[Rfam]
RNA sequence: CUUGCAAGUGACGAUAAAUUAGACAGGGACAUCAGAUCUCCUAAUUAGAGAACAUGAUGAUUUGUCGAUGGGAAUCUCUCUGAUGCAUA
Numbered sequence: 001c002u003u004g005c006a007a008g009u010g011a012c013g014a015u016a017a018a019u020u021a022g023a024c025a026g027g028g029a030c031a032u033c034a035g036a037u038c039u040c041c042u043a044a045u046u047a048g049a050g051a052a053c054a055u056g057a058u059g060a061u062u063u064g065u066c067g068a069u070g071g072g073a074a075u076c077u078c079u080c081u082g083a084u085g086c087a088u089a
Base pairs, nucleotide, nucleotide: 003087004086005085006084
RNA: Small nucleolar RNA R44/J54/Z268 family